This 87-nucleotide RNA from Myotis brandtii belongs to the Rfam family "mir-9195 microRNA precursor family". Pairs were carried over by alignment from the consensus structure, which was predicted with RNAalifold. Gene Ontology terms of the family: miRNA-mediated post-transcriptional gene silencing and RISC complex. Lineage of the source: Eukaryota > Vertebrata > Theria > Yangochiroptera > Myotis.

[Rfam]
RNA sequence: AGAGGCCCUCCACAGCCGGGGCGGGAUGCUUGCCUCGUCGCCACAGCGACGAAGCAAGCAUUCCACCAGGCCGCUCACACUGCCUGC
Numbered sequence: 001a002g003a004g005g006c007c008c009u010c011c012a013c014a015g016c017c018g019g020g021g022c023g024g025g026a027u028g029c030u031u032g033c034c035u036c037g038u039c040g041c042c043a044c045a046g047c048g049a050c051g052a053a054g055c056a057a058g059c060a061u062u063c064c065a066c067c068a069g070g071c072c073g074c075u076c077a078c079a080c081u082g083c084c085u086g087c
Stems, first nucleotide, its partner, number of pairs: 004084003013073001015071003020067002023064011037050005
Dot-bracket structure: ...(((......(.(((..((.(((((((((((...(((((....)))))...))))))))))).)).))).)........)))...